Rfam assigns this 53-nucleotide RNA sequence from Aurantimonas aggregata to the family "sul1 RNA". The family's RNA type in Rfam is riboswitch. The family has 54 seed sequences and 519 matches in Rfam 15.1. The match comes from Rfam's covariance-model search (50 bits).
RNA sequence: CAAGGACCCAUUGAAUUGGGUGGCUACGCCGGGCGCCCAUCCCUCGGCUAACU
Numbered sequence: 001c002a003a004g005g006a007c008c009c010a011u012u013g014a015a016u017u018g019g020g021u022g023g024c025u026a027c028g029c030c031g032g033g034c035g036c037c038c039a040u041c042c043c044u045c046g047g048c049u050a051a052c053u
Base pairs, nucleotide, nucleotide: 006021007020008019009018010017028048029047030046031045032044033043